[Rfam]
RNA sequence: AGGCAACCACCUUUGGUAAUUGAUUUGAAAGGUCGGUGUUGUUCUGUUCGUAAAUUGAUUUCUUGUGCUCUUCAGACUUGUUGAGAUUUAUAGUCUAUGAAGCGGGUCUAGUAAGCACAAGUACAUU
Numbered sequence: 001a002g003g004c005a006a007c008c009a010c011c012u013u014u015g016g017u018a019a020u021u022g023a024u025u026u027g028a029a030a031g032g033u034c035g036g037u038g039u040u041g042u043u044c045u046g047u048u049c050g051u052a053a054a055u056u057g058a059u060u061u062c063u064u065g066u067g068c069u070c071u072u073c074a075g076a077c078u079u080g081u082u083g084a085g086a087u088u089u090a091u092a093g094u095c096u097a098u099g100a101a102g103c104g105g106g107u108c109u110a111g112u113a114a115g116c117a118c119a120a121g122u123a124c125a126u127u
Base pairs, nucleotide, nucleotide: 002040003039004038005037007036008035009033010032011031012030013029014028015025062121063120064119067116068115069114074109075108076107077106078105080103081102082101085095086094087093
The record is a 127-nucleotide RNA sequence from Mikania micrantha, which matches "Small nucleolar RNA snoR77" in Rfam.
By type it is an H/ACA-box small nucleolar RNA.
A reference for the family is Marker et al. (2002), "Experimental RNomics: identification of 140 candidates for small non-messenger RNAs in the plant Arabidopsis thaliana", Curr Biol.
The organism belongs to Mikania, within Eukaryota.
The base pairs follow the family's consensus structure, which was predicted with WAR.